[Rfam]
RNA sequence: GAUGCUUCAUGACAGGAAGGACUGAAAUGUCUCCAGGACGCCUGGUCUUUCCUUGAUGUCUUUGCAGC
Numbered sequence: 001g002a003u004g005c006u007u008c009a010u011g012a013c014a015g016g017a018a019g020g021a022c023u024g025a026a027a028u029g030u031c032u033c034c035a036g037g038a039c040g041c042c043u044g045g046u047c048u049u050u051c052c053u054u055g056a057u058g059u060c061u062u063u064g065c066a067g068c
Stems, first nucleotide, its partner, number of pairs: 001068001003066003014053010029039003
Selenocysteine insertion sequence 1: a 68-nucleotide RNA from Sciurus carolinensis. The base pairs follow the family's consensus structure, which is taken from published work. It scores 48 bits against the family's covariance model. By type it is a cis-regulatory element.